[Rfam]
RNA sequence: AUUAUUAUUCGCACCAUUCAUCGAAUGGUGGGUUAGCGCGCGUCCGAGUCUCGAUCACUGCAAACCCGCCCCGUGAGGCGGGUUUU
Numbered sequence: 001a002u003u004a005u006u007a008u009u010c011g012c013a014c015c016a017u018u019c020a021u022c023g024a025a026u027g028g029u030g031g032g033u034u035a036g037c038g039c040g041c042g043u044c045c046g047a048g049u050c051u052c053g054a055u056c057a058c059u060g061c062a063a064a065c066c067c068g069c070c071c072c073g074u075g076a077g078g079c080g081g082g083u084u085u086u
Stems, first nucleotide, its partner, number of pairs: 012030006062085009